[Rfam]
Rfam assigns this 317-nucleotide RNA from Anopheles gambiae to the family "Arthropod 7SK RNA". The literature on the family includes a 2008 paper in Mol Biol Evol by Gruber et al., "Arthropod 7SK RNA". The family's RNA type in Rfam is non-coding RNA gene.
RNA sequence: GGAGGUGUGUGUCUUCGUAUGUGAUGGCACGAUAACUGAACAUUGAUCGCCAAAAACAGUUUAGUUUGCAGAUCUGUCCAGUGGCAUGCGUCACAACUCUAAUGGUAGUCUUUCUUCUGUGUCAUCGGUGAUCUCUCGCUGCACGGCGACGGGCCGUACGCACGAUUGAUGUCAUCUGUGACACGAGAUUCUACCGCCAUACGAAAUUAGUUGAAAUUGUAAUUAUACAAGUUAGCUUAGCUUCGGAUUAAAAUUACAUUGUUCAGAACGCUUCCAUAUCACUCGGGCACUGCCGAGCAGUUGGCCCAUUCUUUUUG
Numbered sequence: 001g002g003a004g005g006u007g008u009g010u011g012u013c014u015u016c017g018u019a020u021g022u023g024a025u026g027g028c029a030c031g032a033u034a035a036c037u038g039a040a041c042a043u044u045g046a047u048c049g050c051c052a053a054a055a056a057c058a059g060u061u062u063a064g065u066u067u068g069c070a071g072a073u074c075u076g077u078c079c080a081g082u083g084g085c086a087u088g089c090g091u092c093a094c095a096a097c098u099c100u101a102a103u104g105g106u107a108g109u110c111u112u113u114c115u116u117c118u119g120u121g122u123c124a125u126c127g128g129u130g131a132u133c134u135c136u137c138g139c140u141g142c143a144c145g146g147c148g149a150c151g152g153g154c155c156g157u158a159c160g161c162a163c164g165a166u167u168g169a170u171g172u173c174a175u176c177u178g179u180g181a182c183a184c185g186a187g188a189u190u191c192u193a194c195c196g197c198c199a200u201a202c203g204a205a206a207u208u209a210g211u212u213g214a215a216a217u218u219g220u221a222a223u224u225a226u227a228c229a230a231g232u233u234a235g236c237u238u239a240g241c242u243u244c245g246g247a248u249u250a251a252a253a254u255u256a257c258a259u260u261g262u263u264c265a266g267a268a269c270g271c272u273u274c275c276a277u278a279u280c281a282c283u284c285g286g287g288c289a290c291u292g293c294c295g296a297g298c299a300g301u302u303g304g305c306c307c308a309u310u311c312u313u314u315u316u317g
Stems, first nucleotide, its partner, number of pairs: 001275008021094005036081003040077003045074004049069002052067003286306003289301005